[Rfam]
RNA sequence: UGGCGGGGGCCCGCACAAGCGGUGGAGCAUGUGGUUUAAUUCGAUGCAAAGCGAAGAACCUUACCAAGGCUUGACAUACUGGCUCAAGCUAAUGUGAAAGCAUUUUGUGUUGUAAGGCUUGCCUUACAUAGUCAGUACAGGUGCUGCAUGGCUGUCGUCAGCUCGUGCCGUGAGGUGUCCGGUUAAGUCCGGUAACGAGCGCAACCCCUAUGUUUAGUUGCCAGCACGUAAGGUGGGAACUCUAAAGAGACUGCCGGCGACAAGCCGGAGGAAGGCGGGGACGACGUCAAGUCAUCAUGGCCCUUAUGCUUUGGGCUACACACAUGCUACAAUGGCGGAUACAAUGGGUUGCCAAACCGUAAGGUGGAGCCAAUCCCAUCAAAGUCCGUCUCAGUUCGGAUUGUAGGCUGCAACUCGCCUGCAUGAAGUUGGAAUCGCUAGUAAUCGUGGAUCAGCACUGCCACGGUGAAUACGUUCCCGGGCCUUGCACACA
Numbered sequence: 001u002g003g004c005g006g007g008g009g010c011c012c013g014c015a016c017a018a019g020c021g022g023u024g025g026a027g028c029a030u031g032u033g034g035u036u037u038a039a040u041u042c043g044a045u046g047c048a049a050a051g052c053g054a055a056g057a058a059c060c061u062u063a064c065c066a067a068g069g070c071u072u073g074a075c076a077u078a079c080u081g082g083c084u085c086a087a088g089c090u091a092a093u094g095u096g097a098a099a100g101c102a103u104u105u106u107g108u109g110u111u112g113u114a115a116g117g118c119u120u121g122c123c124u125u126a127c128a129u130a131g132u133c134a135g136u137a138c139a140g141g142u143g144c145u146g147c148a149u150g151g152c153u154g155u156c157g158u159c160a161g162c163u164c165g166u167g168c169c170g171u172g173a174g175g176u177g178u179c180c181g182g183u184u185a186a187g188u189c190c191g192g193u194a195a196c197g198a199g200c201g202c203a204a205c206c207c208c209u210a211u212g213u214u215u216a217g218u219u220g221c222c223a224g225c226a227c228g229u230a231a232g233g234u235g236g237g238a239a240c241u242c243u244a245a246a247g248a249g250a251c252u253g254c255c256g257g258c259g260a261c262a263a264g265c266c267g268g269a270g271g272a273a274g275g276c277g278g279g280g281a282c283g284a285c286g287u288c289a290a291g292u293c294a295u296c297a298u299g300g301c302c303c304u305u306a307u308g309c310u311u312u313g314g315g316c317u318a319c320a321c322a323c324a325u326g327c328u329a330c331a332a333u334g335g336c337g338g339a340u341a342c343a344a345u346g347g348g349u350u351g352c353c354a355a356a357c358c359g360u361a362a363g364g365u366g367g368a369g370c371c372a373a374u375c376c377c378a379u380c381a382a383a384g385u386c387c388g389u390c391u392c393a394g395u396u397c398g399g400a401u402u403g404u405a406g407g408c409u410g411c412a413a414c415u416c417g418c419c420u421g422c423a424u425g426a427a428g429u430u431g432g433a434a435u436c437g438c439u440a441g442u443a444a445u446c447g448u449g450g451a452u453c454a455g456c457a458c459u460g461c462c463a464c465g466g467u468g469a470a471u472a473c474g475u476u477c478c479c480g481g482g483c484c485u486u487g488c489a490c491a492c493a
Base pairs, nucleotide, nucleotide: 001491002490003488004487005486007485008484009483010482011481012480013479015475016474019438020437021436022435023434024330026328027327028326029325030324031323032322033321034319035318040055041054042053043052064314065313066312067311068310069309070308077137078136080134081133082132083131084130091104092103093102094101095100108128109127110126140303141302143301144300145299146298149297150296151292152291153290154288156286157285161200162199163198164197165196166195167176168175169174179192180191181190182189206280207279208278209277211248213246214245215244216243217242221237222236225235226234227233251271252270254268255267256266257265258264334390335389336388337387338386339385340384346377347376348375351370352369356365357364358363397428402423403422404421405420406419407418408417444467445466446465447464448463449462450461

A member of the RNA family "Bacterial small subunit ribosomal RNA" from an uncultured bacterium, 493 nucleotides of a longer RNA. Pairs were carried over by alignment from the consensus structure, which is taken from published work. The family has 99 seed sequences and 42,628 matches in Rfam 15.1. Rfam's curators put it in the seed alignment. Its Rfam clan is "SSU clan".